[Rfam]
RNA sequence: AUACUUACCUGGAUGGGGUCAAUGGAUGAUCAAUAAGGUCCAUGGCCUAGAUUGAUGACCUCCAUUGCACUUAGGAGGGGUGUCAGUCUAAGGUCUCCUCAAGUAGGAGAGCCUACAUCAUAAUUUGUGGUAGUGGGAGCUUGCGUUCGCGCAGCCCCCUU
Numbered sequence: 001a002u003a004c005u006u007a008c009c010u011g012g013a014u015g016g017g018g019u020c021a022a023u024g025g026a027u028g029a030u031c032a033a034u035a036a037g038g039u040c041c042a043u044g045g046c047c048u049a050g051a052u053u054g055a056u057g058a059c060c061u062c063c064a065u066u067g068c069a070c071u072u073a074g075g076a077g078g079g080g081u082g083u084c085a086g087u088c089u090a091a092g093g094u095c096u097c098c099u100c101a102a103g104u105a106g107g108a109g110a111g112c113c114u115a116c117a118u119c120a121u122a123a124u125u126u127g128u129g130g131u132a133g134u135g136g137g138a139g140c141u142u143g144c145g146u147u148c149g150c151g152c153a154g155c156c157c158c159c160u161u
Stems, first nucleotide, its partner, number of pairs: 012119004016048006023042005049089003053086001055083003059079003062075002091114003094110003098106002135160003139156001142153004
RNA: U1 spliceosomal RNA
Organism: Glycine max